About this RNA: Shown here is a 175-nucleotide sequence from Allobosea sp. PAMC 26642, a member of the family "caulobacter sRNA CC2171". The source organism's lineage runs through Bacteria, Pseudomonadota, Hyphomicrobiales, Alloboseaceae and Allobosea.

RNA sequence: UAACAACUGAAAGGAGGUGAUCCAGUGUCUCAUUGUCAUCAACCGCUGGCUCGAAGCGGUCGGACCUGGACUCAUUCCCAGUGGGGGUCUUGUUCCGCGUGAGUUUUCGCGCCUUUGGGUCCGGUUCGCCGGACCGCGGUACGACAAUGGAAGGGCUGCCCGAAAGGGCGGCCCU
Numbered sequence: 001u002a003a004c005a006a007c008u009g010a011a012a013g014g015a016g017g018u019g020a021u022c023c024a025g026u027g028u029c030u031c032a033u034u035g036u037c038a039u040c041a042a043c044c045g046c047u048g049g050c051u052c053g054a055a056g057c058g059g060u061c062g063g064a065c066c067u068g069g070a071c072u073c074a075u076u077c078c079c080a081g082u083g084g085g086g087g088u089c090u091u092g093u094u095c096c097g098c099g100u101g102a103g104u105u106u107u108c109g110c111g112c113c114u115u116u117g118g119g120u121c122c123g124g125u126u127c128g129c130c131g132g133a134c135c136g137c138g139g140u141a142c143g144a145c146a147a148u149g150g151a152a153g154g155g156c157u158g159c160c161c162g163a164a165a166g167g168g169c170g171g172c173c174c175u
Stems, first nucleotide, its partner, number of pairs: 016023002031149007044062002047059001049057003063089005090124003093119001095118003101112001103110002126139004131135001152175010